[Rfam]
RNA sequence: GGUUGCAAGUUUGAGGCCACAGUAGAAGCACUCAUGAUGUGGCCUGCCAGAUUCCAAUGACAUCUGUAAUUUCUGCU
Numbered sequence: 001g002g003u004u005g006c007a008a009g010u011u012u013g014a015g016g017c018c019a020c021a022g023u024a025g026a027a028g029c030a031c032u033c034a035u036g037a038u039g040u041g042g043c044c045u046g047c048c049a050g051a052u053u054c055c056a057a058u059g060a061c062a063u064c065u066g067u068a069a070u071u072u073c074u075g076c077u
Base pairs, nucleotide, nucleotide: 015044016043017042018041021077022076023075024074025073026072027071028040029039030038048066049065050064051063052062053060054059